[Rfam]
RNA sequence: UGGUCAUAAUAGAAGCUUUUAGAAUGCAAUUUCUCAUUUGCUGUGGACAUACCCAUAAAAAAAAUUUCCCACGAGAUUUUCUGUAUGUUACCUUGUUAGCAACCAACAUGUUGGAAACAAUA
Numbered sequence: 001u002g003g004u005c006a007u008a009a010u011a012g013a014a015g016c017u018u019u020u021a022g023a024a025u026g027c028a029a030u031u032u033c034u035c036a037u038u039u040g041c042u043g044u045g046g047a048c049a050u051a052c053c054c055a056u057a058a059a060a061a062a063a064a065u066u067u068c069c070c071a072c073g074a075g076a077u078u079u080u081c082u083g084u085a086u087g088u089u090a091c092c093u094u095g096u097u098a099g100c101a102a103c104c105a106a107c108a109u110g111u112u113g114g115a116a117a118c119a120a121u122a
Stems, first nucleotide, its partner, number of pairs: 003053001006050002010046001012044001026041004069114003077106002086101003
Description
A member of the RNA family "Small nucleolar RNA SNORA32" from Castor canadensis, 122 nucleotides long. Rfam 15.1 lists 615 matches to the family in 234 species. About the family: ACA32 is a member of the H/ACA class of snoRNA that guide the sites of modification of uridines to pseudouridines. Gene Ontology terms of the family: RNA processing and nucleolus. Rfam classes the family as an H/ACA-box small nucleolar RNA.